[Rfam]
RNA sequence: CUGCGAUCAUCAUGCUGAUGUGCGACGGAGUCCGUGAUGAUUGCAGAGAGUUUUCAGACGUCCAUCGCACCGCAUGCUUGAUCUCAGGUAUAUGCGGCCCGAAACUGGGAGAGAACGCUGAGCGUUACAAC
Numbered sequence: 001c002u003g004c005g006a007u008c009a010u011c012a013u014g015c016u017g018a019u020g021u022g023c024g025a026c027g028g029a030g031u032c033c034g035u036g037a038u039g040a041u042u043g044c045a046g047a048g049a050g051u052u053u054u055c056a057g058a059c060g061u062c063c064a065u066c067g068c069a070c071c072g073c074a075u076g077c078u079u080g081a082u083c084u085c086a087g088g089u090a091u092a093u094g095c096g097g098c099c100c101g102a103a104a105c106u107g108g109g110a111g112a113g114a115a116c117g118c119u120g121a122g123c124g125u126u127a128c129a130a131c
Stems, first nucleotide, its partner, number of pairs: 001046012070097006076089005
A member of the RNA family "atpB RNA" from Corynebacterium diphtheriae, 131 nucleotides long. By type it is a cis-regulatory element. The sequence is in the family's curated seed alignment.